[Rfam]
RNA sequence: AAGCAAAUCAGUUCUAUCGCUGCUUCUUCGGAAGGAGAGGAAAGUCCGGGCAACAUAGAGCAACUCACUUCCUAACGGGAAGGCAUUGCGCAAGCAAUGACAGCAAGUGCCACAGAAAAUAUACCGCCUAUCGCAAGAUCGGUAAGGGUGAAAACGUGAGGUAAGAGCUCACGGUCUUGUAUGGCAACAUGCAUUACGGUAAACCUUGGGUGUUGAAAGACCAAAUAGGUUACGGAUUUUGAAGGUUGCUCGCCUUCUUUUUUAACGAAAAUCCGUAAUGGGUAGGUUGAUGGAGCUUAUUCGCGAGAAUACGCCUAGAUAAAUGAUAGAAGAUCUUGCAAAAGAUAACAGAACCCGGCUUAUAUGAUUUGCUUCUUU
Numbered sequence: 001a002a003g004c005a006a007a008u009c010a011g012u013u014c015u016a017u018c019g020c021u022g023c024u025u026c027u028u029c030g031g032a033a034g035g036a037g038a039g040g041a042a043a044g045u046c047c048g049g050g051c052a053a054c055a056u057a058g059a060g061c062a063a064c065u066c067a068c069u070u071c072c073u074a075a076c077g078g079g080a081a082g083g084c085a086u087u088g089c090g091c092a093a094g095c096a097a098u099g100a101c102a103g104c105a106a107g108u109g110c111c112a113c114a115g116a117a118a119a120u121a122u123a124c125c126g127c128c129u130a131u132c133g134c135a136a137g138a139u140c141g142g143u144a145a146g147g148g149u150g151a152a153a154a155c156g157u158g159a160g161g162u163a164a165g166a167g168c169u170c171a172c173g174g175u176c177u178u179g180u181a182u183g184g185c186a187a188c189a190u191g192c193a194u195u196a197c198g199g200u201a202a203a204c205c206u207u208g209g210g211u212g213u214u215g216a217a218a219g220a221c222c223a224a225a226u227a228g229g230u231u232a233c234g235g236a237u238u239u240u241g242a243a244g245g246u247u248g249c250u251c252g253c254c255u256u257c258u259u260u261u262u263u264a265a266c267g268a269a270a271a272u273c274c275g276u277a278a279u280g281g282g283u284a285g286g287u288u289g290a291u292g293g294a295g296c297u298u299a300u301u302c303g304c305g306a307g308a309a310u311a312c313g314c315c316u317a318g319a320u321a322a323a324u325g326a327u328a329g330a331a332g333a334u335c336u337u338g339c340a341a342a343a344g345a346u347a348a349c350a351g352a353a354c355c356c357g358g359c360u361u362a363u364a365u366g367a368u369u370u371g372c373u374u375c376u377u378u
Stems, first nucleotide, its partner, number of pairs: 001374010011363001012331007020037002023034004042361003046358005051215004063211005068082005083101001084099006102206002107204002109200003124147002126143003130139003155173006178193006219288004229279006259271004295314002298311005
RNA: Bacterial RNase P class A